Notes: The family of this 73-nucleotide RNA from Limimonas halophila is "tRNA". Taxonomically the source falls in Limimonas (Bacteria, Pseudomonadati, Pseudomonadota, Rhodovibrionaceae). By type it is a transfer RNA. Transfer RNA (tRNA) molecules are approximately 80 nucleotides in length.

[Rfam]
RNA sequence: GCGGGCGUAGCUCAGGGGCUAGAGCGUCUGCUUGCCAUGCAGAAGGUCGUGGGUUCGAAUCCCAUCGCCCGCU
Numbered sequence: 001g002c003g004g005g006c007g008u009a010g011c012u013c014a015g016g017g018g019c020u021a022g023a024g025c026g027u028c029u030g031c032u033u034g035c036c037a038u039g040c041a042g043a044a045g046g047u048c049g050u051g052g053g054u055u056c057g058a059a060u061c062c063c064a065u066c067g068c069c070c071g072c073u
Stems, first nucleotide, its partner, number of pairs: 001072007010025004027043005049065005
Dot-bracket structure: (((((((..((((........)))).(((((.......))))).....(((((.......)))))))))))).